[Rfam]
Background:
The family of this 36-nucleotide RNA sequence from Mucilaginibacter sp. PPCGB 2223 is "DUF805b RNA". The family's consensus secondary structure is taken from published work. Taxonomically the source falls in Mucilaginibacter (Bacteria, Bacteroidota, Sphingobacteriia, Sphingobacteriales). It is annotated as a cis-regulatory element. The family is grouped with related families in Rfam's "DUF805 clan".

RNA sequence: ACGGAAUAAGCCGAAAAUCCGAUCAAAGAGUAGGCG
Numbered sequence: 001a002c003g004g005a006a007u008a009a010g011c012c013g014a015a016a017a018u019c020c021g022a023u024c025a026a027a028g029a030g031u032a033g034g035c036g
Stems, first nucleotide, its partner, number of pairs: 002021004010035003